[Rfam]
Guanidine-II riboswitch aptamer (mini-ykkC): a 46-nucleotide RNA from Acidiferrobacter sp. SPIII_3. Lineage of the source: Bacteria > Pseudomonadati > Pseudomonadota > Acidiferrobacterales > Acidiferrobacter.
RNA sequence: GCAUGGGGACGACCCCGUAGCCUGGCAAUUUCGCGGGACGGCCCGC
Number, nucleotide and partner (000 for none) at each position: 001g018002c017003a000004u000005g016006g015007g014008g013009a000010c000011g000012a000013c008014c007015c006016c005017g002018u001019a000020g000021c000022c000023u000024g000025g000026c000027a000028a000029u000030u000031u000032c000033g046034c045035g044036g043037g042038a000039c000040g000041g000042c037043c036044c035045g034046c033